[Rfam]
This 380-nucleotide sequence from Parazoarcus communis belongs to the Rfam family "Bacterial RNase P class A". It is annotated as a ribozyme. NCBI's taxonomy places the organism under Bacteria, Pseudomonadota, Betaproteobacteria, Parazoarcus, Parazoarcus communis. The literature on the family includes a 1999 paper in Nucleic Acids Res by Brown, "The Ribonuclease P Database".

RNA sequence: GAAGUUCGCCAGGCAGUCGCUGUGUGCCUUCGGGUGCAUGGAGGAAAGUCCGGGCCCCGCAGAGCAGGAUGCCGGCUAACGGCCGGGCGCCGUGAGGCGACGGAAAGUGCAACAGAGAGUAAACCGCCGAUGGCCUCCGUCAGGGGGAUCAGGUAAGGGUGAAACGGUGGGGUAAGAGCCCACCGCAGGACUGGCGACAGGACUGGCACGGCAAACCCCAUCCGGGGCAAGGCCAAAUAGGGGAGUCAUGGCGUGGCUCGCGUCGCUCCCGGGUAGGCUGCUAGAGCGGCACGGUAACGUGUCGCCCAGAGGAAUGACUGCCCGAUGCAUCGGUUCGCCGGUGCGUUCGACAGAACCCGGCUUAUCGGCGAACUUCCCAA
Numbered sequence: 001g002a003a004g005u006u007c008g009c010c011a012g013g014c015a016g017u018c019g020c021u022g023u024g025u026g027c028c029u030u031c032g033g034g035u036g037c038a039u040g041g042a043g044g045a046a047a048g049u050c051c052g053g054g055c056c057c058c059g060c061a062g063a064g065c066a067g068g069a070u071g072c073c074g075g076c077u078a079a080c081g082g083c084c085g086g087g088c089g090c091c092g093u094g095a096g097g098c099g100a101c102g103g104a105a106a107g108u109g110c111a112a113c114a115g116a117g118a119g120u121a122a123a124c125c126g127c128c129g130a131u132g133g134c135c136u137c138c139g140u141c142a143g144g145g146g147g148a149u150c151a152g153g154u155a156a157g158g159g160u161g162a163a164a165c166g167g168u169g170g171g172g173u174a175a176g177a178g179c180c181c182a183c184c185g186c187a188g189g190a191c192u193g194g195c196g197a198c199a200g201g202a203c204u205g206g207c208a209c210g211g212c213a214a215a216c217c218c219c220a221u222c223c224g225g226g227g228c229a230a231g232g233c234c235a236a237a238u239a240g241g242g243g244a245g246u247c248a249u250g251g252c253g254u255g256g257c258u259c260g261c262g263u264c265g266c267u268c269c270c271g272g273g274u275a276g277g278c279u280g281c282u283a284g285a286g287c288g289g290c291a292c293g294g295u296a297a298c299g300u301g302u303c304g305c306c307c308a309g310a311g312g313a314a315u316g317a318c319u320g321c322c323c324g325a326u327g328c329a330u331c332g333g334u335u336c337g338c339c340g341g342u343g344c345g346u347u348c349g350a351c352a353g354a355a356c357c358c359g360g361c362u363u364a365u366c367g368g369c370g371a372a373c374u375u376c377c378c379a380a
Stems, first nucleotide, its partner, number of pairs: 001376010011365001012322007020041009046363003050360005055227004062259004067223005072086005087101001088099004102218002107216002109212002124158002126154003131151003135147004166184006185207001186205003191200003231279004241270006250264005286305008